Rfam assigns this 93-nucleotide sequence from Citrus unshiu to the family "Small nucleolar RNA snoR31/Z110/Z27". Gene Ontology terms of the family: nucleolus and RNA processing. It is annotated as a C/D-box small nucleolar RNA. The literature on the family includes a 2001 paper in J Mol Biol by Barneche et al., "Identification of 66 box C/D snoRNAs in Arabidopsis thaliana: extensive gene duplications generated multiple isoforms predicting new ribosomal RNA 2'-O-methylation sites". The family's consensus secondary structure was predicted with PFOLD.
RNA sequence: AUCAAGAUGAUGAAAUCAGAAAAAAUCUUAGGACACCUUCUGACACAGUGAAACCUACUGUGUAUGAGAAUGAUUCAGUUAAUCAGUUCUGAU
Dot-bracket structure: (((((...................................((...))........................................).))))